L31-Gammaproteobacteria ribosomal protein leader: a 50-nucleotide RNA.
The literature on the family includes a 2020 paper in BMC Microbiol by Eckert and Weinberg, "Discovery of 20 novel ribosomal leader candidates in bacteria and archaea".
The family's RNA type in Rfam is cis-regulatory leader.
[Rfam]
RNA sequence: CGCAUGGUGUUCGUGGAAAGCACGGAUGGCGAUGCGGCCUGAUAUGAGGU
Numbered sequence: 001c002g003c004a005u006g007g008u009g010u011u012c013g014u015g016g017a018a019a020g021c022a023c024g025g026a027u028g029g030c031g032a033u034g035c036g037g038c039c040u041g042a043u044a045u046g047a048g049g050u
Base pairs, nucleotide, nucleotide: 001036002035003034004033005032007030008029011025012024013023014022015021